[Rfam]
RNA: Actinobacteria sRNA Ms_IGR-7
Organism: Streptomyces tateyamensis
RNA sequence: ACGAGAUGCCUUGCUGAUUGUGCGUGGUGGAGCCUAGAGAACUCCCAUCAUCGCAGGUCGCAAGGCAUCUCUUCGUUCUGCGGAACCUCCCCGACAGCGAUCACCCGGUGGAUCCGG
Dot-bracket structure: ..(((((((((((.(((.(.(((((((((.((.........)).).)))).))))).))))))))))))))...........................(.(((.....)))...)..